Shown here is a 77-nucleotide RNA from Solanum lycopersicum, a member of the family "Small nucleolar RNA R21". Rfam classes the family as a C/D-box small nucleolar RNA.
RNA sequence: UAUCGCUAUGACGAUUAAAAAUAUAAAAAGUAGUGGACUGAAAAAUAUAUUGAUGAGUAAAUUAAUUCUGAGCGAUG
Numbered sequence: 001u002a003u004c005g006c007u008a009u010g011a012c013g014a015u016u017a018a019a020a021a022u023a024u025a026a027a028a029a030g031u032a033g034u035g036g037a038c039u040g041a042a043a044a045a046u047a048u049a050u051u052g053a054u055g056a057g058u059a060a061a062u063u064a065a066u067u068c069u070g071a072g073c074g075a076u077g
Base pairs, nucleotide, nucleotide: 001077002076003075004074005073006072
The match comes from Rfam's covariance-model search (56 bits). Lineage of the source: Eukaryota > Embryophyta > Solanales > Solanoideae > Solanum subgen. Lycopersicon.